[Rfam]
RNA sequence: CCUGAUCCAGAACUUCGAUUCCGUGUAGAUCAUCCUCGGGAAGGUGCGCCCGCUUCACGUCACCCCGCCGAGGGC
Dot-bracket structure: ..((((((.(..........).)....))))).......((.((((....))))))...................
RNA: Actinobacteria sRNA Ms_AS-8
Organism: Kytococcus sedentarius